Rfam assigns this 96-nucleotide RNA sequence from Papaver somniferum to the family "MIR394 microRNA precursor family". The family has 19 seed sequences and 724 matches in Rfam 15.1. A search with the family's covariance model found it, with a score of 74 bits. NCBI's taxonomy places the organism under Eukaryota, Streptophyta, Spermatophyta, Papaveraceae, Papaver. On this family, see Jones-Rhoades and Bartel, Mol Cell 2004: "Computational identification of plant microRNAs and their targets, including a stress-induced miRNA".
RNA sequence: CCAACAGAAACUUUUGGCAUUCUGUCCACCUCCACAUCUACUUUCUUUUUCUUCUUGUUAAUGGAGGUGGGCAUACUGCCAACAGAACCCUGUUGG
Numbered sequence: 001c002c003a004a005c006a007g008a009a010a011c012u013u014u015u016g017g018c019a020u021u022c023u024g025u026c027c028a029c030c031u032c033c034a035c036a037u038c039u040a041c042u043u044u045c046u047u048u049u050u051c052u053u054c055u056u057g058u059u060a061a062u063g064g065a066g067g068u069g070g071g072c073a074u075a076c077u078g079c080c081a082a083c084a085g086a087a088c089c090c091u092g093u094u095g096g
Stems, first nucleotide, its partner, number of pairs: 014082006023073011